[Rfam]
RNA: Bacterial small subunit ribosomal RNA, nucleotides 541 to 893
Organism: Clostridium novyi
RNA sequence: GGCGUAAAGAGUAUGUAGGUGGGCAUUUAAGUCAGAUGUGAAAUUCCCGGGCUUAACCUGGGAGCUGCAUUUGAUACUGGGUGUCUAGAGUGCAGGAGAGGAAAGUGGAAUUCCUAGUGUAGCGGUGAAAUGCGUAGAGAUUAGGAAGAACACCAGUGGCGAAGGCGACUUUCUGGACUGUAACUGACACUGAGAUACGAAAGCGUGGGUAGCAAACAGGAUUAGAUACCCUGGUAGUCCACGCCGUAAACGAUGAAUACUAGGUGUCGGGGGGUACCACCCUCGGUGCCGCAGCAAACGCAUUAAGUAUUCCGCCUGGGGAGUACGGUCGCAAGAUUAAAACUCAAAGGAAU
Numbered sequence: 001g002g003c004g005u006a007a008a009g010a011g012u013a014u015g016u017a018g019g020u021g022g023g024c025a026u027u028u029a030a031g032u033c034a035g036a037u038g039u040g041a042a043a044u045u046c047c048c049g050g051g052c053u054u055a056a057c058c059u060g061g062g063a064g065c066u067g068c069a070u071u072u073g074a075u076a077c078u079g080g081g082u083g084u085c086u087a088g089a090g091u092g093c094a095g096g097a098g099a100g101g102a103a104a105g106u107g108g109a110a111u112u113c114c115u116a117g118u119g120u121a122g123c124g125g126u127g128a129a130a131u132g133c134g135u136a137g138a139g140a141u142u143a144g145g146a147a148g149a150a151c152a153c154c155a156g157u158g159g160c161g162a163a164g165g166c167g168a169c170u171u172u173c174u175g176g177a178c179u180g181u182a183a184c185u186g187a188c189a190c191u192g193a194g195a196u197a198c199g200a201a202a203g204c205g206u207g208g209g210u211a212g213c214a215a216a217c218a219g220g221a222u223u224a225g226a227u228a229c230c231c232u233g234g235u236a237g238u239c240c241a242c243g244c245c246g247u248a249a250a251c252g253a254u255g256a257a258u259a260c261u262a263g264g265u266g267u268c269g270g271g272g273g274g275u276a277c278c279a280c281c282c283u284c285g286g287u288g289c290c291g292c293a294g295c296a297a298a299c300g301c302a303u304u305a306a307g308u309a310u311u312c313c314g315c316c317u318g319g320g321g322a323g324u325a326c327g328g329u330c331g332c333a334a335g336a337u338u339a340a341a342a343c344u345c346a347a348a349g350g351a352a353u
Base pairs, nucleotide, nucleotide: 001316002315003314009313011198012197013196014195016192018191019190020189022085023084024083025082026081027080028079030078031077032074033073034072035071036070037069038068039067040066045063046062047061048060049059050058051057089185090184091183092181093180094179095178100174101173102172103171104170105169106168107151111147112146113145114144115143116142117141118140122133123132124131159166160165203244204243205242206241207240208239212238213237217233218232219231220230255312256311257310258309259308260307263290264289265288266287267286268285269284270283271282272281273280294301295300318345319344320343327338328337329336330335